[Rfam]
RNA sequence: ACCUCCAGUGCCUACUGAGCUGAUAACAGUUUGACAUAGUGAACACUGGCUCAGUUCAGCAGGAACCGGAG
Number, nucleotide and partner (000 for none) at each position: 001a000002c000003c071004u070005c069006c068007a000008g066009u065010g000011c063012c062013u061014a000015c059016u058017g057018a056019g055020c054021u053022g052023a051024u000025a000026a000027c048028a047029g046030u045031u000032u000033g000034a000035c000036a000037u000038a000039g000040u000041g000042a000043a000044c000045a030046c029047u028048g027049g000050c000051u023052c022053a021054g020055u019056u018057c017058a016059g015060c000061a013062g012063g011064a000065a009066c008067c000068g006069g005070a004071g003
RNA: mir-24 microRNA precursor family